[Rfam]
RNA: mir-228 microRNA precursor family
Organism: Caenorhabditis remanei
RNA sequence: AUCUUGUUCGCAAUGGCACUGCAUGAAUUCACGGAUGCAUUGCGACAGACCGCGGAUCAUGCGGUACCAUAGCGGACAGUGGUGA
Numbered sequence: 001a002u003c004u005u006g007u008u009c010g011c012a013a014u015g016g017c018a019c020u021g022c023a024u025g026a027a028u029u030c031a032c033g034g035a036u037g038c039a040u041u042g043c044g045a046c047a048g049a050c051c052g053c054g055g056a057u058c059a060u061g062c063g064g065u066a067c068c069a070u071a072g073c074g075g076a077c078a079g080u081g082g083u084g085a
Stems, first nucleotide, its partner, number of pairs: 006077005013070004018065009028056003032052003036047002